The record is a 67-nucleotide sequence from Methylobacillus sp. MM3, which matches "int-alpA RNA" in Rfam. The family's RNA type in Rfam is small RNA. A search with the family's covariance model found it, with a score of 57 bits.

[Rfam]
RNA sequence: GUUACCCCUAGCCUGUCCAGGCGAAAAGCGGAGACCUUCACCGCUUGGGGUGGCACCUUCUUGAAGG
Number, nucleotide and partner (000 for none) at each position: 001g054002u053003u052004a051005c050006c049007c048008c047009u000010a000011g022012c021013c020014u019015g000016u000017c000018c000019a014020g013021g012022c011023g000024a000025a000026a000027a000028g044029c043030g042031g041032a000033g000034a000035c067036c066037u065038u064039c063040a000041c031042c030043g029044c028045u000046u000047g008048g007049g006050g005051u004052g003053g002054c001055a000056c000057c000058u000059u000060c000061u000062u000063g039064a038065a037066g036067g035